[Rfam]
RNA sequence: UCAGAAAAAGGCAAACUUAUUGAAAAAUAAGGACGCAAAGUCACAGGUCUAAGGUUUAAUACGAUGACGGCUGGGCUACCUGAA
Number, nucleotide and partner (000 for none) at each position: 001u084002c000003a081004g080005a000006a000007a000008a000009a000010g000011g036012c035013a000014a000015a000016c031017u030018u029019a028020u027021u026022g000023a000024a000025a000026a021027a020028u019029a018030a017031g016032g000033a000034c070035g012036c011037a000038a000039a077040g076041u075042c074043a000044c073045a072046g071047g068048u067049c066050u000051a000052a000053g000054g000055u000056u000057u000058a000059a000060u000061a000062c000063g000064a000065u000066g049067a048068c047069g000070g034071c046072u045073g044074g042075g041076c040077u039078a000079c000080c004081u003082g000083a000084a001
c-di-GMP-I-GGC riboswitch aptamer: an 84-nucleotide RNA sequence from Heyndrickxia shackletonii. A reference for the family is Weinberg et al. (2017), "Bioinformatic analysis of riboswitch structures uncovers variant classes with altered ligand specificity", Proc Natl Acad Sci U S A. Taxonomically the source falls in Heyndrickxia (Bacteria, Bacillati, Bacilli, Bacillaceae). Rfam links the family to the GO term cyclic-di-GMP binding.